[Rfam]
RNA sequence: AUGCUAUGCCCUCCGUGGGCGUUUCCUCCCUAAACUUGGGCCACUGAGCGAAAGCUUGUGUGGCCUUUUUUUAUGCCCUC
Number, nucleotide and partner (000 for none) at each position: 001a000002u000003g000004c000005u000006a000007u000008g020009c019010c018011c017012u000013c000014c000015g000016u000017g011018g010019g009020c008021g000022u000023u000024u000025c000026c000027u000028c000029c000030c000031u000032a000033a000034a000035c000036u000037u000038g000039g065040g064041c063042c062043a061044c060045u000046g000047a057048g000049c000050g000051a000052a000053a000054g000055c000056u000057u047058g000059u000060g044061u043062g042063g041064c040065c039066u000067u000068u000069u000070u000071u000072u000073a000074u000075g000076c000077c000078c000079u000080c000
This 80-nucleotide RNA sequence from Govanella unica belongs to the Rfam family "Makes More Granules Regulator RNA (mmgR)".
The family is grouped with related families in Rfam's "suhB sRNA clan".
Taxonomically the source falls in Govanella (Bacteria, Pseudomonadati, Pseudomonadota, Alphaproteobacteria).
The match comes from Rfam's covariance-model search (54 bits).
Pairs were carried over by alignment from the consensus structure.
The family's RNA type in Rfam is small RNA.